[Rfam]
RNA sequence: UUUGUUUGCUAGGGGUGCCCUUCGGGGCUGAGAUGAGGAAACUCGAUCUCUUUGAACCUGAUCUGGUUAAUACCAGCGGAGGAAAGCAAUCGUUUUACUUA
Number, nucleotide and partner (000 for none) at each position: 001u000002u000003u000004g000005u000006u089007u088008g087009c086010u085011a051012g050013g049014g048015g000016u045017g028018c027019c026020c025021u000022u000023c000024g000025g020026g019027g018028c017029u000030g000031a000032g000033a000034u000035g044036a043037g042038g000039a000040a000041a000042c037043u036044c035045g016046a000047u000048c014049u013050c012051u011052u000053u000054g000055a000056a000057c082058c081059u080060g000061a000062u000063c076064u075065g074066g073067u000068u000069a000070a000071u000072a000073c066074c065075a064076g063077c000078g000079g000080a059081g058082g057083a000084a000085a010086g009087c008088a007089a006090u000091c000092g000093u000094u000095u000096u000097a000098c000099u000100u000101a000